Notes: Rfam assigns this 87-nucleotide RNA from Durio zibethinus to the family "Small nucleolar RNA R11/Z151". Gene Ontology terms of the family: nucleolus and RNA processing. On this family, see Barneche et al., J Mol Biol 2001: "Identification of 66 box C/D snoRNAs in Arabidopsis thaliana: extensive gene duplications generated multiple isoforms predicting new ribosomal RNA 2'-O-methylation sites". Pairs were carried over by alignment from the consensus structure, which was predicted with PFOLD. By type it is a C/D-box small nucleolar RNA. The match comes from Rfam's covariance-model search (72 bits). The organism belongs to Durio, within Eukaryota.
RNA sequence: AGGCUGAUGAUGCUAAUAAAAAUUAUGUUAAGGGAUUUCAAUGAGAUUUUGUUGUCAGUGAUCUGAUUGUUACACACACUGAGGCCU
Numbered sequence: 001a002g003g004c005u006g007a008u009g010a011u012g013c014u015a016a017u018a019a020a021a022a023u024u025a026u027g028u029u030a031a032g033g034g035a036u037u038u039c040a041a042u043g044a045g046a047u048u049u050u051g052u053u054g055u056c057a058g059u060g061a062u063c064u065g066a067u068u069g070u071u072a073c074a075c076a077c078a079c080u081g082a083g084g085c086c087u
Base pairs, nucleotide, nucleotide: 001087002086003085004084005083